[Rfam]
This 35-nucleotide RNA from Flavobacterium aquatile belongs to the Rfam family "DUF805b RNA".
Its Rfam clan is "DUF805 clan".
The base pairs follow the family's consensus structure, which is taken from published work.
RNA sequence: AAGGCGAAACCUGAAAAGCCCCAAAAGAGUAAGGA
Dot-bracket structure: ..(((....[[[.....)))...........]]].